[Rfam]
RNA sequence: UAGGUUUGACUGAAGUCAAACUUCAUAAAUUUGACCAAAUUUAUAGAAAAAAUAUGAACAUUUACAAUAGCAAAUAUAUAUGAUGUGAACAUAUAUUCAAUAAUGAAUCUAAUGGUAUUGAUUUGUUAUUGUAGAUGUUAUUAUUUCUAUCUAUAAACUUUGUCAAAGUUUACAAAGUUUGACUUUGAGCAAAGCUAA
Numbered sequence: 001u002a003g004g005u006u007u008g009a010c011u012g013a014a015g016u017c018a019a020a021c022u023u024c025a026u027a028a029a030u031u032u033g034a035c036c037a038a039a040u041u042u043a044u045a046g047a048a049a050a051a052a053u054a055u056g057a058a059c060a061u062u063u064a065c066a067a068u069a070g071c072a073a074a075u076a077u078a079u080a081u082g083a084u085g086u087g088a089a090c091a092u093a094u095a096u097u098c099a100a101u102a103a104u105g106a107a108u109c110u111a112a113u114g115g116u117a118u119u120g121a122u123u124u125g126u127u128a129u130u131g132u133a134g135a136u137g138u139u140a141u142u143a144u145u146u147c148u149a150u151c152u153a154u155a156a157a158c159u160u161u162g163u164c165a166a167a168g169u170u171u172a173c174a175a176a177g178u179u180u181g182a183c184u185u186u187g188a189g190c191a192a193a194g195c196u197a198a
Stems, first nucleotide, its partner, number of pairs: 005193004011187013026172001031166005044153004049148001051146001053143002057139010070126006